Xanthomonas sRNA sX9: a 77-nucleotide sequence from Xanthomonas oryzae.

RNA sequence: AUGGACCACGCGUCCACUGCGGUUGUGAGCGCGCCGCCCGUGUCUACCUGACCGCUGCUCGCGACGUGUUGUUCGCC
Numbered sequence: 001a002u003g004g005a006c007c008a009c010g011c012g013u014c015c016a017c018u019g020c021g022g023u024u025g026u027g028a029g030c031g032c033g034c035c036g037c038c039c040g041u042g043u044c045u046a047c048c049u050g051a052c053c054g055c056u057g058c059u060c061g062c063g064a065c066g067u068g069u070u071g072u073u074c075g076c077c
Base pairs, nucleotide, nucleotide: 002016003015004014005013006012020036021035022034023033048075050073051072052071054069